[Rfam]
RNA sequence: UCUGGUCGAGCGCCUGGACCGGCAGGAGCGGAGGACCCGAGCACGACGGGACCGCCGGCCGCCACGGCCGGACGGCCCCUUGGGGUGAAGUCGUUACCGCGACCGGGCAUCUUCGCCUGCCCGAACCCGACAGGUACUCCUUCGCAGGCGGCUGACGAAGGGUUG
Number, nucleotide and partner (000 for none) at each position: 001u000002c000003u000004g000005g000006u000007c000008g000009a000010g000011c150012g149013c148014c147015u000016g000017g000018a000019c026020c025021g000022g000023c000024a000025g020026g019027a000028g145029c144030g143031g142032a141033g140034g000035a000036c000037c000038c082039g081040a080041g079042c000043a000044c000045g000046a000047c000048g000049g000050g000051a000052c000053c000054g000055c000056c000057g000058g000059c000060c000061g000062c000063c000064a000065c000066g000067g000068c000069c000070g000071g000072a000073c000074g000075g000076c000077c000078c000079c041080u040081u039082g038083g128084g127085g126086u000087g000088a000089a000090g000091u102092c101093g100094u099095u000096a000097c000098c000099g094100c093101g092102a091103c000104c000105g122106g121107g120108c119109a000110u000111c000112u000113u000114c000115g000116c000117c000118u000119g108120c107121c106122c105123g000124a000125a000126c085127c084128c083129g000130a000131c000132a000133g000134g000135u000136a000137c000138u000139c000140c033141u032142u031143c030144g029145c028146a000147g014148g013149c012150g011151g000152c000153u000154g000155a000156c000157g000158a000159a000160g000161g000162g000163u000164u000165g000

This 165-nucleotide RNA sequence belongs to the Rfam family "c-di-AMP riboswitch aptamer (ydaO/yuaA leader)".